[Rfam]
The family of this 78-nucleotide RNA sequence from Humibacter ginsenosidimutans is "Fluoride riboswitch aptamer (crcB RNA motif)". Pairs were carried over by alignment from the consensus structure, which is taken from published work. It scores 43 bits against the family's covariance model.
RNA sequence: CGAAACCUGGGCGAUGGGGUAUCCGCCCGAGCGCUGCGCGCACGAACCGCCACGUCGGCUGAUGACUCCUACCGAACU
Numbered sequence: 001c002g003a004a005a006c007c008u009g010g011g012c013g014a015u016g017g018g019g020u021a022u023c024c025g026c027c028c029g030a031g032c033g034c035u036g037c038g039c040g041c042a043c044g045a046a047c048c049g050c051c052a053c054g055u056c057g058g059c060u061g062a063u064g065a066c067u068c069c070u071a072c073c074g075a076a077c078u
Stems, first nucleotide, its partner, number of pairs: 010027004016069005049059003